[Rfam]
RNA: FMN riboswitch aptamer (RFN element)
RNA sequence: GGAAUUCUUCGGGGCAGGGUGAUACGAUAACGUAGAUUCCCGACCGACGGUGAUCUGGCGAUCAAUGAAUGCCAGAAAGUCCGUGACCUGCGCAAGCAGCUGAUCCGGUGUGAGUCCGGAACCGACAGUAUAGUCUGGAUGAGAGAAGAAAGCG
Numbered sequence: 001g002g003a004a005u006u007c008u009u010c011g012g013g014g015c016a017g018g019g020u021g022a023u024a025c026g027a028u029a030a031c032g033u034a035g036a037u038u039c040c041c042g043a044c045c046g047a048c049g050g051u052g053a054u055c056u057g058g059c060g061a062u063c064a065a066u067g068a069a070u071g072c073c074a075g076a077a078a079g080u081c082c083g084u085g086a087c088c089u090g091c092g093c094a095a096g097c098a099g100c101u102g103a104u105c106c107g108g109u110g111u112g113a114g115u116c117c118g119g120a121a122c123c124g125a126c127a128g129u130a131u132a133g134u135c136u137g138g139a140u141g142a143g144a145g146a147a148g149a150a151a152g153c154g
Base pairs, nucleotide, nucleotide: 005150006149007148008147009146010145017041018040019039043134044133045124046123047084048083049082050081079122080121088099089098104120105119106118107117108116126137127136128135
Dot-bracket structure: ....((((((......(((...................))).[[((((((............................[[))))...((........))....(((((.......)))))]])).(((....]]))).......))))))....